[Rfam]
RNA sequence: UCCUCACAAAUGCUGCGUUUCUUUGCUCACACACCGACGAAAACCUCGCGUUCACGCGCCUGGCAAGUCUUUCUGGCAAAUGAGAAAUUCGGAGUAAUCUUCAACAAACUGCACUGCCGCAAUGCCGCGCCUUCACGGAGGGCGGCGUUCGGCAUCACUGCCCGUGAGGGCCUGCCAUGACUUCAUGGUUGCACUCGGCAUCAGAAAUCUCAGCCACACGGGCCAGACUUUUGUUUGGACCCCCUGUGGCUAUGGGAGCCGGUGCGAAGAUUGUGUGUAUGCUCUUUCUCUGAAGAAGAGGUACGAUCACUUUAGUGCAAUACGCAGCGUAUCUGAGCUUCUGCCACUCACACCUGUCGCUAGAUAUGGUGGGUGGAGGUUCCGGGUAUCAUUCGAUUCCGAUUACUCUUGUGAGGA
Numbered sequence: 001u002c003c004u005c006a007c008a009a010a011u012g013c014u015g016c017g018u019u020u021c022u023u024u025g026c027u028c029a030c031a032c033a034c035c036g037a038c039g040a041a042a043a044c045c046u047c048g049c050g051u052u053c054a055c056g057c058g059c060c061u062g063g064c065a066a067g068u069c070u071u072u073c074u075g076g077c078a079a080a081u082g083a084g085a086a087a088u089u090c091g092g093a094g095u096a097a098u099c100u101u102c103a104a105c106a107a108a109c110u111g112c113a114c115u116g117c118c119g120c121a122a123u124g125c126c127g128c129g130c131c132u133u134c135a136c137g138g139a140g141g142g143c144g145g146c147g148u149u150c151g152g153c154a155u156c157a158c159u160g161c162c163c164g165u166g167a168g169g170g171c172c173u174g175c176c177a178u179g180a181c182u183u184c185a186u187g188g189u190u191g192c193a194c195u196c197g198g199c200a201u202c203a204g205a206a207a208u209c210u211c212a213g214c215c216a217c218a219c220g221g222g223c224c225a226g227a228c229u230u231u232u233g234u235u236u237g238g239a240c241c242c243c244c245u246g247u248g249g250c251u252a253u254g255g256g257a258g259c260c261g262g263u264g265c266g267a268a269g270a271u272u273g274u275g276u277g278u279a280u281g282c283u284c285u286u287u288c289u290c291u292g293a294a295g296a297a298g299a300g301g302u303a304c305g306a307u308c309a310c311u312u313u314a315g316u317g318c319a320a321u322a323c324g325c326a327g328c329g330u331a332u333c334u335g336a337g338c339u340u341c342u343g344c345c346a347c348u349c350a351c352a353c354c355u356g357u358c359g360c361u362a363g364a365u366a367u368g369g370u371g372g373g374u375g376g377a378g379g380u381u382c383c384g385g386g387u388a389u390c391a392u393u394c395g396a397u398u399c400c401g402a403u404u405a406c407u408c409u410u411g412u413g414a415g416g417a
Base pairs, nucleotide, nucleotide: 001417002416003415004414007411008410009409012328013327014326015325016324017323018322022080023079024078025077036069037068090401091400092399093398094397099269100268101267102266160171161170162169163168174189175188176187177186178185191265192264193263194262198260212251213250214249329389330388331387332386333385334384335383
Source information:
This 417-nucleotide RNA sequence from Cercospora berteroae belongs to the Rfam family "Nuclear RNase P". From the family's description: Ribonuclease P (RNase P) is a ubiquitous endoribonuclease, found in archaea, bacteria and eukarya as well as chloroplasts and mitochondria. The organism belongs to Cercospora, within Eukaryota. Pairs were carried over by alignment from the consensus structure, which is taken from published work.